[Rfam]
Overview
Rfam assigns this 85-nucleotide RNA sequence from Sparus aurata to the family "Mammalian CPEB3 ribozyme". Rfam links the family to the GO term RNA nuclease activity. A search with the family's covariance model found it, with a score of 52 bits.
RNA sequence: CAACUUUUUUGGGGGAUCAAGGUAGAAGCGUUCACAUCGCGAUCCCCGUCAAGUAAUACCACCAAUAUUACUUGCGAAUUCAACC
Numbered sequence: 001c002a003a004c005u006u007u008u009u010u011g012g013g014g015g016a017u018c019a020a021g022g023u024a025g026a027a028g029c030g031u032u033c034a035c036a037u038c039g040c041g042a043u044c045c046c047c048g049u050c051a052a053g054u055a056a057u058a059c060c061a062c063c064a065a066u067a068u069u070a071c072u073u074g075c076g077a078a079u080u081c082a083a084c085c
Stems, first nucleotide, its partner, number of pairs: 013046006021085003025081003028040003050074009